[Rfam]
RNA sequence: AUACCUUUCUCGGCCUUUCGGCUAAGAUCAAUUGUACUAUCUGUUUUUAUCAGUUUAAUAUCUGAUAUAUGGGCCAUUGGCCCAUAAUAAUAUUAAAUUUAUUUGUUUCAGGGGAGAGGCCCAUCUCAGUAGCUUGCUGCUUCGGUCCUUGAGCGUCACCCGGGGCUUUGCAGUACUCUGCCUGGGCCUGCGCACCACAC
Number, nucleotide and partner (000 for none) at each position: 001a000002u000003a000004c000005c000006u000007u000008u027009c026010u025011c000012g023013g022014c021015c020016u000017u000018u000019c000020g015021g014022c013023u012024a000025a010026g009027a008028u000029c000030a000031a000032u000033u000034g000035u000036a000037c000038u000039a000040u000041c000042u000043g000044u000045u000046u000047u000048u067049a066050u065051c064052a063053g062054u000055u000056u000057a000058a000059u000060a000061u000062c053063u052064g051065a050066u049067a048068u000069a085070u084071g083072g082073g081074c080075c079076a000077u000078u000079g075080g074081c073082c072083c071084a070085u069086a000087a000088u000089a000090a000091u000092a000093u000094u000095a000096a000097a000098u000099u000100u000101a000102u000103u000104u000105g000106u000107u000108u000109c000110a000111g000112g000113g000114g000115a000116g150117a149118g148119g147120c000121c145122c144123a000124u000125c000126u000127c000128a000129g140130u139131a138132g137133c000134u000135u000136g000137c132138u131139g130140c129141u000142u000143c000144g122145g121146u000147c119148c118149u117150u116151g000152a000153g193154c192155g191156u190157c000158a000159c000160c185161c184162g183163g000164g182165g181166c180167u000168u000169u000170g000171c000172a000173g000174u000175a000176c000177u000178c000179u000180g166181c165182c164183u162184g161185g160186g000187c000188c000189u000190g156191c155192g154193c153194a000195c000196c000197a000198c000199a000200c000